A member of the RNA family "FMN riboswitch aptamer (RFN element)" from Microlunatus soli, 130 nucleotides long. A search with the family's covariance model found it, with a score of 94 bits. The family's consensus secondary structure is taken from published work.
[Rfam]
RNA sequence: CUGCGUGCUCUGGGGUCGGUGAAACUCCGAGCCGGCGGUGACAGUCCGCGACCCGUUCACAACCAGUGAGCGGUUGACCAGGUGAAACUCCUGGACCGACGGUGAAAGUCCGGAUGGGAAGCGCACGCGG
Number, nucleotide and partner (000 for none) at each position: 001c000002u000003g128004c127005g126006u125007g124008c123009u000010c121011u000012g000013g000014g000015g000016u000017c029018g028019g027020u000021g000022a000023a000024a000025c000026u000027c019028c018029g017030a000031g109032c108033c098034g097035g049036c048037g047038g046039u000040g000041a000042c000043a000044g096045u095046c038047c037048g036049c035050g000051a000052c000053c073054c072055g000056u000057u000058c000059a000060c000061a000062a000063c000064c000065a000066g000067u000068g000069a000070g000071c000072g054073g053074u000075u000076g000077a000078c094079c093080a092081g091082g090083u000084g000085a000086a000087a000088c000089u000090c082091c081092u080093g079094g078095a045096c044097c034098g033099a000100c112101g111102g110103u000104g000105a000106a000107a000108g032109u031110c102111c101112g100113g000114a000115u000116g000117g000118g000119a000120a000121g010122c000123g008124c007125a006126c005127g004128c003129g000130g000